[Rfam]
Nucleotides: 089
Base pairs, nucleotide, nucleotide: 001088002087003086004085005084006083007082010026011025012024028044029043030042031041032040065081066080067079068078069077
Number, partner (000 for none) and nucleotide at each position: 001088g002087g003086a004085g005084u006083g007082a008000u009000a010026c011025c012024c013000a014000a015000g016000a017000g018000g019000c020000c021000g022000a023000a024012g025011g026010g027000g028044c029043u030042c031041c032040c033000c034000u035000g036000c037000u038000a039000a040032g041031g042030g043029a044028g045000u046000a047000g048000g049000c050000g051000u052000g053000u054000a055000a056000a057000a058000a059000g060000c061000g062000c063000g064000c065081g066080a067079g068078a069077g070000u071000u072000c073000a074000a075000a076000u077069c078068u079067c080066u081065c082007u083006c084005a085004c086003u087002c088001c089000g
The family of this 89-nucleotide RNA sequence from Firmicutes bacterium CAG:137 is "tRNA". Taxonomically the source falls in Bacillota (Bacteria, Bacillati). The family's consensus secondary structure is taken from published work. Rfam links the family to the GO term triplet codon-amino acid adaptor activity.